RNA sequence: ACACACGGCCGCAAGUCCGACAUGUCGGCGAUGCCGACUGGGGAUUGCGGAUGUGU
Dot-bracket structure: ..((((..((((((..((.....((((((...))))))...)).))))))..))))
Numbered sequence: 001a002c003a004c005a006c007g008g009c010c011g012c013a014a015g016u017c018c019g020a021c022a023u024g025u026c027g028g029c030g031a032u033g034c035c036g037a038c039u040g041g042g043g044a045u046u047g048c049g050g051a052u053g054u055g056u
Stems, first nucleotide, its partner, number of pairs: 003056004009050006017043002024038006
Annotation:
The family of this 56-nucleotide RNA sequence is "S15-Halobacteria ribosomal protein leader". It is one of the family's seed sequences. It is annotated as a cis-regulatory leader. The base pairs follow the family's consensus structure, which is taken from published work. On this family, see Eckert and Weinberg, BMC Microbiol 2020: "Discovery of 20 novel ribosomal leader candidates in bacteria and archaea".